[Rfam]
RNA: Pseudoknot of the regulatory region of the repBA gene
Organism: Erwinia sp. OLSSP12
RNA sequence: AACCCCCCGAAAUCUGCUCUCAACUUGGCGGCUGGAUCAGAUAUCAGGGGGUCAAAAGCAGGCGCUGGCCUGUGAGAGAUUAUAACGCAUGCAACUCAGAAAACAAUACCUGUCCGCCAUAAGA
Dot-bracket structure: .((((((.((..((((.((.((...[[[.[[.)))).))))..)).))))))............................................................]]..]]].....